[Rfam]
RNA sequence: AAAAUGUGCUAGGGGAGUUGGUAUUUGCCAGCUGAGAUUGAGAACGGUAUUCUCUGACUCUUAACACCUGAUCUGGUUAGACCCAGCGUAGGGAAGCAUUAAUAGAACGAA
Numbered sequence: 001a002a003a004a005u006g007u008g009c010u011a012g013g014g015g016a017g018u019u020g021g022u023a024u025u026u027g028c029c030a031g032c033u034g035a036g037a038u039u040g041a042g043a044a045c046g047g048u049a050u051u052c053u054c055u056g057a058c059u060c061u062u063a064a065c066a067c068c069u070g071a072u073c074u075g076g077u078u079a080g081a082c083c084c085a086g087c088g089u090a091g092g093g094a095a096g097c098a099u100u101a102a103u104a105g106a107a108c109g110a111a
Base pairs, nucleotide, nucleotide: 006099007098008097009096010095011061012060013059014058016055017032018031019030020029021028040054041053042052043051067092068091069090070089073086074085075084076083

This 111-nucleotide RNA sequence from Clostridium polyendosporum belongs to the Rfam family "TPP riboswitch aptamer (THI element)". The family's consensus secondary structure is taken from published work. Lineage of the source: Bacteria > Clostridia > Eubacteriales > Clostridiaceae > Clostridium.